[Rfam]
Notes:
Shown here is a 75-nucleotide RNA sequence from Funneliformis caledonium, a member of the family "tRNA". Rfam describes the family as follows. Transfer RNA (tRNA) molecules are approximately 80 nucleotides in length. Pairs were carried over by alignment from the consensus structure, which is taken from published work.
RNA sequence: GCCUUGUUAGCUCAGUUGGUUAAGAGCGUCUGACUGAAGAUCAGAAGGUCCCCCGUUCGAUCCGGGGAUAAGGCA
Numbered sequence: 001g002c003c004u005u006g007u008u009a010g011c012u013c014a015g016u017u018g019g020u021u022a023a024g025a026g027c028g029u030c031u032g033a034c035u036g037a038a039g040a041u042c043a044g045a046a047g048g049u050c051c052c053c054c055g056u057u058c059g060a061u062c063c064g065g066g067g068a069u070a071a072g073g074c075a
Stems, first nucleotide, its partner, number of pairs: 001074007010027004029045005051067005